[Rfam]
RNA sequence: GGUCGCUGCCCUCUUCGGGCGUUUCCUCCCAGACUCAGCCCCGGCCGCCGCAAAGUGGCCGGGGCCUUUUCGUGGCGGCU
Numbered sequence: 001g002g003u004c005g006c007u008g009c010c011c012u013c014u015u016c017g018g019g020c021g022u023u024u025c026c027u028c029c030c031a032g033a034c035u036c037a038g039c040c041c042c043g044g045c046c047g048c049c050g051c052a053a054a055g056u057g058g059c060c061g062g063g064g065c066c067u068u069u070u071c072g073u074g075g076c077g078g079c080u
Stems, first nucleotide, its partner, number of pairs: 008020004038065011
RNA: Makes More Granules Regulator RNA (mmgR)